This 86-nucleotide RNA sequence from Thermacetogenium phaeum belongs to the Rfam family "Group II catalytic intron D1-D4-1". The source organism's lineage runs through Bacteria, Bacillati, Clostridia, Thermoanaerobacterales and Thermacetogenium phaeum. The match comes from Rfam's covariance-model search (71 bits). Gene Ontology term of the family: Group II intron splicing.
RNA sequence: UAACCCGUGUCGAAAGGCGCGGCUGAGCCGGCAGGAGUCAGCAGAGGGCAUAGUACCCUGGGGGACAUGAACUCCAGGGGAAGGCC
Numbered sequence: 001u002a003a004c005c006c007g008u009g010u011c012g013a014a015a016g017g018c019g020c021g022g023c024u025g026a027g028c029c030g031g032c033a034g035g036a037g038u039c040a041g042c043a044g045a046g047g048g049c050a051u052a053g054u055a056c057c058c059u060g061g062g063g064g065a066c067a068u069g070a071a072c073u074c075c076a077g078g079g080g081a082a083g084g085c086c
Stems, first nucleotide, its partner, number of pairs: 001025002005022007038045002047086003056079008